The record is a 74-nucleotide RNA from Acidithiobacillus marinus, which matches "tRNA" in Rfam.
The family's consensus secondary structure is taken from published work.
A search with the family's covariance model found it, with a score of 74 bits.
Rfam links the family to the GO term triplet codon-amino acid adaptor activity.

Nucleotides: 074
Stems, first nucleotide, its partner, number of pairs: 001073007010026004028044005050066005
Number, partner (000 for none) and nucleotide at each position: 001073g002072c003071g004070c005069c006068u007067g008000u009000a010026g011025c012024u013023c014000a015000a016000c017000u018000g019000g020000a021000u022000a023013g024012a025011g026010c027000a028044a029043c030042g031041g032040c033000c034000u035000u036000c037000u038000a039000a040032g041031c042030c043029g044028u045000a046000g047000g048000u049000c050066a051065g052064g053063g054062g055000u056000u057000c058000g059000a060000g061000u062054c063053c064052c065051u066050u067007c068006a069005g070004g071003c072002g073001c074000a